RNA sequence: AAAAAAGCUGUCUAGGGUUCCGUUGGUUGUUUGUCCUACCAAGUCUGGUCCGAGAGAGAGCGUAUAGCAGCACUCCGCUAUAUACACGGAAGGAAAAAAGCCUGGGAGAU
Numbered sequence: 001a002a003a004a005a006a007g008c009u010g011u012c013u014a015g016g017g018u019u020c021c022g023u024u025g026g027u028u029g030u031u032u033g034u035c036c037u038a039c040c041a042a043g044u045c046u047g048g049u050c051c052g053a054g055a056g057a058g059a060g061c062g063u064a065u066a067g068c069a070g071c072a073c074u075c076c077g078c079u080a081u082a083u084a085c086a087c088g089g090a091a092g093g094a095a096a097a098a099a100g101c102c103u104g105g106g107a108g109a110u
Base pairs, nucleotide, nucleotide: 007061008060009059011057012056015051016050020048021047022045023042024041025040026039027038062083063082064081065080066079067078068077085105087108091103092102093101
RNA: Guanidine-I riboswitch aptamer